[Rfam]
RNA sequence: UACUUUUGCAACCGUCUAAACCGAGAGUCGGUGUGGCUACAUAAAAAUUAUUUAUACAAUAUUGGCAUG
Numbered sequence: 001u002a003c004u005u006u007u008g009c010a011a012c013c014g015u016c017u018a019a020a021c022c023g024a025g026a027g028u029c030g031g032u033g034u035g036g037c038u039a040c041a042u043a044a045a046a047a048u049u050a051u052u053u054a055u056a057c058a059a060u061a062u063u064g065g066c067a068u069g
Base pairs, nucleotide, nucleotide: 016036017035018034020032021031022030023029
The family of this 69-nucleotide sequence is "S15-Flavobacteria ribosomal protein leader". Rfam's curators put it in the seed alignment. It is annotated as a cis-regulatory leader.